[Rfam]
RNA sequence: AUAUGACUUAAGAGGCAACUCUUAACUGGCCAGGUAGGGAAAGACCGAGAGGUUCAAGCCUACCGAGCAGAAAGCCCUGCAGAGUAGUGCUAAAAUGGCAGGGCGGCGGGUUCGGCGGUAGCACAUCAACGACGAACCAA
Numbered sequence: 001a002u003a004u005g006a007c008u009u010a011a012g013a014g015g016c017a018a019c020u021c022u023u024a025a026c027u028g029g030c031c032a033g034g035u036a037g038g039g040a041a042a043g044a045c046c047g048a049g050a051g052g053u054u055c056a057a058g059c060c061u062a063c064c065g066a067g068c069a070g071a072a073a074g075c076c077c078u079g080c081a082g083a084g085u086a087g088u089g090c091u092a093a094a095a096u097g098g099c100a101g102g103g104c105g106g107c108g109g110g111u112u113c114g115g116c117g118g119u120a121g122c123a124c125a126u127c128a129a130c131g132a133c134g135a136a137c138c139a140a
Stems, first nucleotide, its partner, number of pairs: 008025007026070003030067001033064006043054004074104007087124005109138006116131002
RNA: IMES-2 RNA motif